[Rfam]
RNA sequence: CAUGCAUAGGGGGGUCAUUGUAGAAGCGUGUUCGUCGCGACCCCUGCCAGCCCUUUUCAGGGCUGCAAUUCUACA
Numbered sequence: 001c002a003u004g005c006a007u008a009g010g011g012g013g014g015u016c017a018u019u020g021u022a023g024a025a026g027c028g029u030g031u032u033c034g035u036c037g038c039g040a041c042c043c044c045u046g047c048c049a050g051c052c053c054u055u056u057u058c059a060g061g062g063c064u065g066c067a068a069u070u071c072u073a074c075a
Stems, first nucleotide, its partner, number of pairs: 011044006019075007026038003048065007
Shown here is a 75-nucleotide RNA from Parnassius apollo, a member of the family "Mammalian CPEB3 ribozyme". Rfam links the family to the GO term RNA nuclease activity.